[Rfam]
RNA sequence: GCGCACGCGUCGGGAGAGCGCGUUCGCACCAGGGUUUCUACCCGCCCGCGAGCGCCGCCGAAGGGGCACACCCAUAAACUCUCAGGCAAAAAGGACCGACCGCGUCGAA
Numbered sequence: 001g002c003g004c005a006c007g008c009g010u011c012g013g014g015a016g017a018g019c020g021c022g023u024u025c026g027c028a029c030c031a032g033g034g035u036u037u038c039u040a041c042c043c044g045c046c047c048g049c050g051a052g053c054g055c056c057g058c059c060g061a062a063g064g065g066g067c068a069c070a071c072c073c074a075u076a077a078a079c080u081c082u083c084a085g086g087c088a089a090a091a092a093g094g095a096c097c098g099a100c101c102g103c104g105u106c107g108a109a
Stems, first nucleotide, its partner, number of pairs: 006104003009100005020055008057087003060083002064081003
Rfam assigns this 109-nucleotide RNA sequence from Trinickia soli to the family "Glycine riboswitch aptamer". About the family: This family represents the bacterial glycine riboswitch. Taxonomically the source falls in Trinickia (Bacteria, Betaproteobacteria, Burkholderiales, Burkholderiaceae).